A member of the RNA family "ASpks TB sRNA" from Nocardia arthritidis, 69 nucleotides long. The base pairs follow the family's consensus structure, which is taken from published work. By type it is an antisense RNA.

RNA sequence: UUUGACCGAGCCCAGCCACAGGGGUUCGUCGCGGUCUUGUCCAUAGGUGGCCAGCAGUGCCUGGGCUUC
Number, nucleotide and partner (000 for none) at each position: 001u000002u000003u000004g000005a000006c000007c000008g000009a000010g000011c000012c000013c000014a026015g025016c024017c023018a000019c000020a000021g000022g000023g017024g016025u015026u014027c000028g000029u064030c063031g000032c059033g058034g000035u000036c000037u054038u053039g052040u000041c050042c049043a048044u000045a000046g000047g000048u043049g042050g041051c000052c039053a038054g037055c000056a000057g000058u033059g032060c000061c000062u000063g030064g029065g000066c000067u000068u000069c000